[Rfam]
RNA: c-di-AMP riboswitch aptamer (ydaO/yuaA leader)
RNA sequence: CGGCCAACGCCGCUGAAUCUCACGAGCCGGGGACCCAUCUUUCCGGGGUGAAUCCGCCACGCGCGGUAGGACGCCUCUUCCGAGUCCGAACCCGUCAGCUAACCCGGUAAGCGGCCAUGAGCGGAAGA
Numbered sequence: 001c002g003g004c005c006a007a008c009g010c011c012g013c014u015g016a017a018u019c020u021c022a023c024g025a026g027c028c029g030g031g032g033a034c035c036c037a038u039c040u041u042u043c044c045g046g047g048g049u050g051a052a053u054c055c056g057c058c059a060c061g062c063g064c065g066g067u068a069g070g071a072c073g074c075c076u077c078u079u080c081c082g083a084g085u086c087c088g089a090a091c092c093c094g095u096c097a098g099c100u101a102a103c104c105c106g107g108u109a110a111g112c113g114g115c116c117a118u119g120a121g122c123g124g125a126a127g128a
Base pairs, nucleotide, nucleotide: 011113012112013111014110018025019024026108027107028106029105030104031103036045046093047092048091054066055065056064057063069087070086071085072084